[Rfam]
The family of this 125-nucleotide RNA sequence from Anisodus acutangulus is "Small nucleolar RNA SNORD14". By type it is a C/D-box small nucleolar RNA. About the family: U14 small nucleolar RNA (U14 snoRNA) is required for early cleavages of eukaryotic precursor rRNAs.

RNA sequence: UAUCUGUGAUGAUGAAUUAUAAGGCUUGUUUCUCAAAACAUUCGCAGUGGCCGCCUAAGAUCCUUCGCCUUUCGCCGGGCUUGAGAGAUACUGCUGUUUUUAUCCUUCCUUGGAUGUCUGAGAUC
Numbered sequence: 001u002a003u004c005u006g007u008g009a010u011g012a013u014g015a016a017u018u019a020u021a022a023g024g025c026u027u028g029u030u031u032c033u034c035a036a037a038a039c040a041u042u043c044g045c046a047g048u049g050g051c052c053g054c055c056u057a058a059g060a061u062c063c064u065u066c067g068c069c070u071u072u073c074g075c076c077g078g079g080c081u082u083g084a085g086a087g088a089u090a091c092u093g094c095u096g097u098u099u100u101u102a103u104c105c106u107u108c109c110u111u112g113g114a115u116g117u118c119u120g121a122g123a124u125c
Stems, first nucleotide, its partner, number of pairs: 002124003061088002064085003